Annotation: The family of this 109-nucleotide RNA sequence from Vibrio xiamenensis is "Qrr RNA". The family's consensus secondary structure is taken from published work. On this family, see Lenz et al., Cell 2004: "The Small RNA Chaperone Hfq and Multiple Small RNAs Control Quorum Sensing in Vibrio harveyi and Vibrio cholerae". From the family's description: This family represents a set of small RNAs (the Qrr RNAs) that are thought to be involved in the regulation of quorum sensing in Vibrio species. Rfam 15.1 lists 148 matches to the family in 70 species.
Nucleotides: 109
Stems, first nucleotide, its partner, number of pairs: 001024006041072003046064007076099008
Number, partner (000 for none) and nucleotide at each position: 001024u002023g003022a004021c005020c006019c007000u008000u009000a010000u011000u012000a013000a014000g015000c016000c017000g018000a019006g020005g021004g022003u023002c024001a025000c026000c027000u028000a029000g030000c031000c032000a033000a034000c035000u036000g037000a038000c039000g040000u041072u042071g043070u044000u045000a046064g047063u048062g049061a050060a051059u052058a053000u054000c055000a056000u057000u058052u059051g060050u061049u062048c063047a064046c065000a066000a067000c068000u069000u070043a071042u072041g073000u074000a075000g076099c077098c078097a079096a080095u081094c082093g083092a084000a085000g086000a087000a088000u089000a090000u091000u092083u093082c094081g095080g096079u097078u098077g099076g100000c101000u102000u103000u104000u105000u106000u107000u108000u109000a